[Rfam]
RNA sequence: AGGCAGCCUCUUUUCUGAAUAUAUAAGAAUAGAAAAGAAGGUGUUGUUCUGCUCGUAAAUUAUACAAGGCAGCUUUUGCUCUUCAGAUUUGCUGAGAUUUUAUCAGAUCUUUGAAGCUGGUCUAGUAAGCAUUAGUACAUU
Numbered sequence: 001a002g003g004c005a006g007c008c009u010c011u012u013u014u015c016u017g018a019a020u021a022u023a024u025a026a027g028a029a030u031a032g033a034a035a036a037g038a039a040g041g042u043g044u045u046g047u048u049c050u051g052c053u054c055g056u057a058a059a060u061u062a063u064a065c066a067a068g069g070c071a072g073c074u075u076u077u078g079c080u081c082u083u084c085a086g087a088u089u090u091g092c093u094g095a096g097a098u099u100u101u102a103u104c105a106g107a108u109c110u111u112u113g114a115a116g117c118u119g120g121u122c123u124a125g126u127a128a129g130c131a132u133u134a135g136u137a138c139a140u141u
Stems, first nucleotide, its partner, number of pairs: 002045004007041002009038009073135002078130003085123005091117003096109003

Notes: The family of this 141-nucleotide RNA from Daucus carota is "Small nucleolar RNA snoR77". A reference for the family is Marker et al. (2002), "Experimental RNomics: identification of 140 candidates for small non-messenger RNAs in the plant Arabidopsis thaliana", Curr Biol. Pairs were carried over by alignment from the consensus structure, which was predicted with WAR. By type it is an H/ACA-box small nucleolar RNA.